[Rfam]
RNA sequence: AAACCGCUGGUGAAAUGCCAUGAAUGUUU
Numbered sequence: 001a002a003a004c005c006g007c008u009g010g011u012g013a014a015a016u017g018c019c020a021u022g023a024a025u026g027u028u029u
Stems, first nucleotide, its partner, number of pairs: 001029004008024001010021003
Background: L19-Flavobacteria ribosomal protein leader: a 29-nucleotide RNA sequence from Lynx pardinus. Taxonomically the source falls in Lynx (Eukaryota, Bilateria, Craniata, Sarcopterygii). On this family, see Eckert and Weinberg, BMC Microbiol 2020: "Discovery of 20 novel ribosomal leader candidates in bacteria and archaea".